[Rfam]
RNA: FMN riboswitch aptamer (RFN element)
RNA sequence: AAAAUACUUCGGGGGCAAGGUGAAAUUCCUUACCGGUGGUGAAAGUCCACGAGCGCAAGCCGAGCAGGCGAAAUUCCUGCACCGACGGUACAGUCCGGAUUGAAGAAGUUUCAA
Numbered sequence: 001a002a003a004a005u006a007c008u009u010c011g012g013g014g015g016c017a018a019g020g021u022g023a024a025a026u027u028c029c030u031u032a033c034c035g036g037u038g039g040u041g042a043a044a045g046u047c048c049a050c051g052a053g054c055g056c057a058a059g060c061c062g063a064g065c066a067g068g069c070g071a072a073a074u075u076c077c078u079g080c081a082c083c084g085a086c087g088g089u090a091c092a093g094u095c096c097g098g099a100u101u102g103a104a105g106a107a108g109u110u111u112c113a114a
Stems, first nucleotide, its partner, number of pairs: 004111001006109005018030003032094002034084002036050004045082002053060002064080005086097003
Dot-bracket structure: ...(.(((((.......(((.......))).[[((((((.....[[))))..((....))...(((((.......)))))]])).(((....]]))).......))))).)...